This 80-nucleotide RNA sequence from Neogobius melanostomus belongs to the Rfam family "mir-130 microRNA precursor family". On this family, see Lagos-Quintana et al., Curr Biol 2002: "Identification of tissue-specific microRNAs from mouse". A search with the family's covariance model found it, with a score of 52 bits. Lineage of the source: Eukaryota > Eumetazoa > Euteleostomi > Gobiiformes > Neogobius.
[Rfam]
RNA sequence: UGUUGUCCAGCGCCCUUUUUCUGUUGCACUACUGAGCAUUGGGGUGAGCAGUGCAAUAUUAAAAGGGCAUUGGCUGAUCA
Numbered sequence: 001u002g003u004u005g006u007c008c009a010g011c012g013c014c015c016u017u018u019u020u021c022u023g024u025u026g027c028a029c030u031a032c033u034g035a036g037c038a039u040u041g042g043g044g045u046g047a048g049c050a051g052u053g054c055a056a057u058a059u060u061a062a063a064a065g066g067g068c069a070u071u072g073g074c075u076g077a078u079c080a
Stems, first nucleotide, its partner, number of pairs: 001080002005075001007073004012068008022058009